[Rfam]
RNA: 6C RNA
RNA sequence: AGCGGUUCGGCUCGACCCCCCCGGAGCCGAACCCCAUAGGCGACCCCCGUCUCCCCCCGACGGGGGUCGUCUCCU
Numbered sequence: 001a002g003c004g005g006u007u008c009g010g011c012u013c014g015a016c017c018c019c020c021c022c023g024g025a026g027c028c029g030a031a032c033c034c035c036a037u038a039g040g041c042g043a044c045c046c047c048c049g050u051c052u053c054c055c056c057c058c059g060a061c062g063g064g065g066g067u068c069g070u071c072u073c074c075u
Stems, first nucleotide, its partner, number of pairs: 002035001004033010039071013